The family of this 65-nucleotide sequence from Mola mola is "Selenocysteine insertion sequence 1".
The incorporation of selenocysteine into a protein sequence is directed by an in-frame UGA codon (usually a stop codon) within the coding region of the mRNA. Selenoprotein mRNAs contain a conserved secondary structure in the 3' UTR that is required for the distinction of UGA stop from UGA selenocysteine. The selenocysteine insertion sequence (SECIS) is around 60 nt in length and adopts a hairpin structure which is sufficiently well-defined and conserved to act as a computational screen for selenoprotein genes.
Rfam 15.1 lists 3,793 matches to the family in 721 species.
For this family Rfam cites "A novel RNA structural motif in the selenocysteine insertion element of eukaryotic selenoprotein mRNAs" (Walczak et al., RNA, 1996).
Gene Ontology term of the family: selenocysteine incorporation.
[Rfam]
RNA sequence: UCUGGACUUGUGACGGCCUGCCUGUAAACCCGACAUCGGGGAGGGCGGGCCUGAUGAUCCCCAGC
Numbered sequence: 001u002c003u004g005g006a007c008u009u010g011u012g013a014c015g016g017c018c019u020g021c022c023u024g025u026a027a028a029c030c031c032g033a034c035a036u037c038g039g040g041g042a043g044g045g046c047g048g049g050c051c052u053g054a055u056g057a058u059c060c061c062c063a064g065c
Stems, first nucleotide, its partner, number of pairs: 002064004015051009030039003